[Rfam]
This 70-nucleotide RNA from Rodentolepis nana belongs to the Rfam family "HDV ribozyme from F. prausnitzii". It scores 47 bits against the family's covariance model. NCBI's taxonomy places the organism under Eukaryota, Metazoa, Platyhelminthes, Eucestoda, Rodentolepis.

Nucleotides: 070
Base pairs, nucleotide, nucleotide: 001036002035003034004033005032006031017029018028019027043056044055045054046053047052
Number, partner (000 for none) and nucleotide at each position: 001036g002035g003034u004033g005032u006031g007000c008000g009000a010000u011000a012000g013000a014000c015000u016000u017029g018028c019027c020000u021000c022000c023000a024000c025000g026000u027019g028018g029017c030000a031006c032005a033004c034003a035002c036001u037000g038000g039000g040000c041000a042000a043056c044055g045054u046053a047052c048000c049000u050000u051000c052047g053046u054045a055044c056043g057000g058000c059000a060000a061000a062000a063000a064000a065000g066000u067000c068000u069000a070000u